[Rfam]
Description
The family of this 77-nucleotide RNA sequence from Sediminicoccus sp. KRV36 is "chrB-a RNA". NCBI's taxonomy places the organism under Bacteria, Pseudomonadati, Alphaproteobacteria, Acetobacterales, Sediminicoccus. The base pairs follow the family's consensus structure, which is taken from published work. By type it is a cis-regulatory element. A search with the family's covariance model found it, with a score of 57 bits.
RNA sequence: CGCAAGGGGGCUGCGCGAUCUCCCCGUGAGGUUUCGGCCCAAGCAUCGCAUCCUGUCUGACCGGAUGCACGCCCAUG
Numbered sequence: 001c002g003c004a005a006g007g008g009g010g011c012u013g014c015g016c017g018a019u020c021u022c023c024c025c026g027u028g029a030g031g032u033u034u035c036g037g038c039c040c041a042a043g044c045a046u047c048g049c050a051u052c053c054u055g056u057c058u059g060a061c062c063g064g065a066u067g068c069a070c071g072c073c074c075a076u077g
Stems, first nucleotide, its partner, number of pairs: 006025005048068006